[Rfam]
RNA sequence: GGGGGCGACAUGGUUUCGACGUCGGUUACAAACCCAAAGGUGCAUGUCGAGAGUGAUGCGUGAUCUCGUAAAUCCCCCGCAUCAAUUUAAUAGUCGCAAACGACGAAAACUACGCUUUAGCAGCCUAAACCGCUGCUAGUGUGCUGCCCUCAGGUUGCUCGUAGCCAGAGACUCUGCAGUAUCAUAAAUUACGAGAUGCUAACUGAUGCCCCGCCUAGGGAUAAGGUUCUAAGACUAAGUAGGCUCGCCAUUAACACCCUGUCCUUCGGGCGGUUCGUGGUCAAAUAAUAGAAGUGACUAUGCAUGUAGAGCCGAUGGCAGAGGACUGACGGACGGGGGUUCGAUCCCCCCCGCCUCCACCA
Numbered sequence: 001g002g003g004g005g006c007g008a009c010a011u012g013g014u015u016u017c018g019a020c021g022u023c024g025g026u027u028a029c030a031a032a033c034c035c036a037a038a039g040g041u042g043c044a045u046g047u048c049g050a051g052a053g054u055g056a057u058g059c060g061u062g063a064u065c066u067c068g069u070a071a072a073u074c075c076c077c078c079g080c081a082u083c084a085a086u087u088u089a090a091u092a093g094u095c096g097c098a099a100a101c102g103a104c105g106a107a108a109a110c111u112a113c114g115c116u117u118u119a120g121c122a123g124c125c126u127a128a129a130c131c132g133c134u135g136c137u138a139g140u141g142u143g144c145u146g147c148c149c150u151c152a153g154g155u156u157g158c159u160c161g162u163a164g165c166c167a168g169a170g171a172c173u174c175u176g177c178a179g180u181a182u183c184a185u186a187a188a189u190u191a192c193g194a195g196a197u198g199c200u201a202a203c204u205g206a207u208g209c210c211c212c213g214c215c216u217a218g219g220g221a222u223a224a225g226g227u228u229c230u231a232a233g234a235c236u237a238a239g240u241a242g243g244c245u246c247g248c249c250a251u252u253a254a255c256a257c258c259c260u261g262u263c264c265u266u267c268g269g270g271c272g273g274u275u276c277g278u279g280g281u282c283a284a285a286u287a288a289u290a291g292a293a294g295u296g297a298c299u300a301u302g303c304a305u306g307u308a309g310a311g312c313c314g315a316u317g318g319c320a321g322a323g324g325a326c327u328g329a330c331g332g333a334c335g336g337g338g339g340u341u342c343g344a345u346c347c348c349c350c351c352c353g354c355c356u357c358c359a360c361c362a
Stems, first nucleotide, its partner, number of pairs: 001358007020331008034318003039313003043306005048068005054084007117139008142181006149170003153166004158195005201227001203225002206222001213244005247281005253275003257270003261298003265293003335351005
Rfam assigns this 362-nucleotide RNA sequence from Marinomonas transparens to the family "transfer-messenger RNA". Rfam describes the family as follows. Bacterial tmRNA, also known as 10Sa RNA or SsrA, is named for its dual tRNA and mRNA-like properties. Its role is to liberate the mRNA from a stalled ribosome. To accomplish this part of the tmRNA is used as a reading frame that ends in a translation stop signal. The broken mRNA is replaced in the ribosome by the tmRNA and translation of the tmRNA leads to addition of a proteolysis tag to the incomplete protein enabling recognition by a protease. Recently a number of permuted tmRNA genes have been found encoded in two parts. tmRNAs have been identified in eubacteria and some chloroplasts but are absent from archaeal and eukaryote nuclear genomes. On this family, see Williams and Bartel, RNA 1996: "Phylogenetic analysis of tmRNA secondary structure". The family's consensus secondary structure is taken from published work.